[Rfam]
RNA sequence: UGCUCUAGCAGCGGGAACAGUACUGCGGUCAGCUAUCCACACUCUGCAGUAAUGUUGCCGCUGCCAGGGUA
Dot-bracket structure: .((((..(((((((.((((.(.((.(((..((.........))))).)).).)))).)))))))..)))).
This 71-nucleotide sequence from Dipodomys ordii belongs to the Rfam family "mir-503 microRNA precursor family". The organism belongs to Dipodomys, within Eukaryota. Pairs were carried over by alignment from the consensus structure, which was predicted with RNAalifold. A reference for the family is Bentwich et al. (2005), "Identification of hundreds of conserved and nonconserved human microRNAs", Nat Genet.